The family of this 114-nucleotide RNA from Roseospira goensis is "Glycine riboswitch aptamer".
The source organism's lineage runs through Bacteria, Pseudomonadati, Pseudomonadota, Rhodospirillaceae and Roseospira.
[Rfam]
RNA sequence: CUCUGGAAAGCGGGCGUCUCGGCGCCCCACCGAAGAUGUAAGCCGUCGGCCCUGGCCCCGGACUCCCCGGGCGUCCGGCCGCAGGCGGUCAAUCUUUCAGGUUCCAUGACAGAG
Numbered sequence: 001c002u003c004u005g006g007a008a009a010g011c012g013g014g015c016g017u018c019u020c021g022g023c024g025c026c027c028c029a030c031c032g033a034a035g036a037u038g039u040a041a042g043c044c045g046u047c048g049g050c051c052c053u054g055g056c057c058c059c060g061g062a063c064u065c066c067c068c069g070g071g072c073g074u075c076c077g078g079c080c081g082c083a084g085g086c087g088g089u090c091a092a093u094c095u096u097u098c099a100g101g102u103u104c105c106a107u108g109a110c111a112g113a114g
Stems, first nucleotide, its partner, number of pairs: 001114005012027004029102003032098002036096001038094001042089006
Clan: Glycine riboswitch clan. For this family Rfam cites "In Vivo Behavior of the Tandem Glycine Riboswitch in Bacillus subtilis" (Babina et al., MBio, 2017).